[Rfam]
RNA sequence: CAUUGUUCGUAGGACAAGUAAUAUAUAGUGUUCGAUAUCAGAGAGCUUGUGGUUAGUGUGAACAAGAAUCAACAUAUAUAUGAAUCUACCUACUUAAUUUAAAAGAACAAUCGGUGAUAACCGUUAUUUUAGUGAAGUGCAAUUUAGGUUUAGUGUAUCUUUAUAACUUAAAUUGUUAAAUAGGGUGGCAACGCGUAGACCACGUCCCUUGU
Numbered sequence: 001c002a003u004u005g006u007u008c009g010u011a012g013g014a015c016a017a018g019u020a021a022u023a024u025a026u027a028g029u030g031u032u033c034g035a036u037a038u039c040a041g042a043g044a045g046c047u048u049g050u051g052g053u054u055a056g057u058g059u060g061a062a063c064a065a066g067a068a069u070c071a072a073c074a075u076a077u078a079u080a081u082g083a084a085u086c087u088a089c090c091u092a093c094u095u096a097a098u099u100u101a102a103a104a105g106a107a108c109a110a111u112c113g114g115u116g117a118u119a120a121c122c123g124u125u126a127u128u129u130u131a132g133u134g135a136a137g138u139g140c141a142a143u144u145u146a147g148g149u150u151u152a153g154u155g156u157a158u159c160u161u162u163a164u165a166a167c168u169u170a171a172a173u174u175g176u177u178a179a180a181u182a183g184g185g186u187g188g189c190a191a192c193g194c195g196u197a198g199a200c201c202a203c204g205u206c207c208c209u210u211g212u
Stems, first nucleotide, its partner, number of pairs: 010092004021081006034070003046066005094110002098106003112123003140175011182209004193205004
The record is a 212-nucleotide RNA from Staphylococcus aureus, which matches "T-box leader" in Rfam. Uncharged tRNA acts as the effector for transcription antitermination of genes in the T-box leader family. T-boxes are found upstream of many aminoacyl-tRNA synthetase genes and some amino acid biosynthetic genes usually in Gram-positive bacteria. The anticodon of a specific tRNA base pairs to a specifier sequence within the T-box motif, and the NCCA acceptor tail of the tRNA base pairs to a conserved bulge in the T-box antiterminator hairpin. Lineage of the source: Bacteria > Bacillota > Bacilli > Caryophanales > Staphylococcus aureus.